[Rfam]
RNA sequence: GGAGUAGAUAGGUGCUGGUGUGCCUGCCGGUCUUCAAAACCGAGUUGUCGUGCUAAGACCACGAUGGGUGGGUUCGAUUCCCACAUAUUCC
Numbered sequence: 001g002g003a004g005u006a007g008a009u010a011g012g013u014g015c016u017g018g019u020g021u022g023c024c025u026g027c028c029g030g031u032c033u034u035c036a037a038a039a040c041c042g043a044g045u046u047g048u049c050g051u052g053c054u055a056a057g058a059c060c061a062c063g064a065u066g067g068g069u070g071g072g073u074u075c076g077a078u079u080c081c082c083a084c085a086u087a088u089u090c091c
Stems, first nucleotide, its partner, number of pairs: 001091006007084001010025006026046001028042004048064004069083004
RNA: Selenocysteine transfer RNA
Organism: Clostridium botulinum